This 156-nucleotide part of an RNA from Peltogaster paguri belongs to the Rfam family "Eukaryotic small subunit ribosomal RNA". The sequence is in the family's curated seed alignment. Pairs were carried over by alignment from the consensus structure, which is taken from published work. The literature on the family includes a 2001 paper in Science by Yusupov et al., "Crystal structure of the ribosome at 5.5 A resolution".
[Rfam]
RNA sequence: CCGCCCGUCGCUACUACCGAUGGAUGAUUUGGUGAGGUCGCCUAGACUGGCUGCUGGCUUCGGCCGUGCGGUCGGAAAGACGCCCAAACUUGGUCGUCUAGAGGAAGUAAAAGUCGUAACAAGGUUUCCGUAGGUGAACCUGCGGAAGGAUCAUUA
Numbered sequence: 001c002c003g004c005c006c007g008u009c010g011c012u013a014c015u016a017c018c019g020a021u022g023g024a025u026g027a028u029u030u031g032g033u034g035a036g037g038u039c040g041c042c043u044a045g046a047c048u049g050g051c052u053g054c055u056g057g058c059u060u061c062g063g064c065c066g067u068g069c070g071g072u073c074g075g076a077a078a079g080a081c082g083c084c085c086a087a088a089c090u091u092g093g094u095c096g097u098c099u100a101g102a103g104g105a106a107g108u109a110a111a112a113g114u115c116g117u118a119a120c121a122a123g124g125u126u127u128c129c130g131u132a133g134g135u136g137a138a139c140c141u142g143c144g145g146a147a148g149g150a151u152c153a154u155u156a
Base pairs, nucleotide, nucleotide: 001123003120006116007115009113012109013108014107015106017104018103021100022099023098024097025096026095027094028093029092031090032089033088036085037084039082040081042079043078047075048074049073050072051071052070053069054068055066056065057064058063125148126147127146128145129144130143131142132141133140134139
Dot-bracket structure: (.(..((.(..((((.((..(((((((((.(((..((.((.((...((((((((((((....)))).))))))))..)).)).))..))).)))))))))..)).))))...).))...)..).((((((((((....))))))))))........